[Rfam]
RNA sequence: AUUAAAAAUUUAAUCUAUUUCUAUUGUUAAAAAUUGACGUGGUUAAUAGAAUAAUCAAACAAUUACACGUGUUGUGUUACAUGUACCUCAUUAUGAUGUAUAGGGACCAAAUUUUAGCAGUAGAAAUAGAUGAUCUUUUUAAC
Numbered sequence: 001a002u003u004a005a006a007a008a009u010u011u012a013a014u015c016u017a018u019u020u021c022u023a024u025u026g027u028u029a030a031a032a033a034u035u036g037a038c039g040u041g042g043u044u045a046a047u048a049g050a051a052u053a054a055u056c057a058a059a060c061a062a063u064u065a066c067a068c069g070u071g072u073u074g075u076g077u078u079a080c081a082u083g084u085a086c087c088u089c090a091u092u093a094u095g096a097u098g099u100a101u102a103g104g105g106a107c108c109a110a111a112u113u114u115u116a117g118c119a120g121u122a123g124a125a126a127u128a129g130a131u132g133a134u135c136u137u138u139u140u141a142a143c
Stems, first nucleotide, its partner, number of pairs: 002142007011133001013131003017127009027117006
Rfam assigns this 143-nucleotide RNA from Gossypium raimondii to the family "MIR7502 microRNA precursor family". The source organism's lineage runs through Eukaryota, Mesangiospermae, Malvales, Malvaceae and Gossypium. Rfam's curators put it in the seed alignment. The family's consensus secondary structure was predicted with RNAalifold.